[Rfam]
RNA sequence: GAUUCAGGACGACCUCAAUCUGUUUCCUGUCAACGGGGACGACCCCU
Numbered sequence: 001g002a003u004u005c006a007g008g009a010c011g012a013c014c015u016c017a018a019u020c021u022g023u024u025u026c027c028u029g030u031c032a033a034c035g036g037g038g039a040c041g042a043c044c045c046c047u
Base pairs, nucleotide, nucleotide: 001020002019003018004017006015007014008013035046036045037044038043
Annotation: Rfam assigns this 47-nucleotide sequence from Cellvibrio polysaccharolyticus to the family "Guanidine-II riboswitch aptamer (mini-ykkC)". Rfam's curators write: Simpler in structure and has fewer highly conserved nucleotide positions than the ykkC-yxkD leader. On this family, see Weinberg et al., Nucleic Acids Res 2007: "Identification of 22 candidate structured RNAs in bacteria using the CMfinder comparative genomics pipeline". It scores 34 bits against the family's covariance model. Taxonomically the source falls in Cellvibrio (Bacteria, Pseudomonadati, Pseudomonadota, Cellvibrionaceae).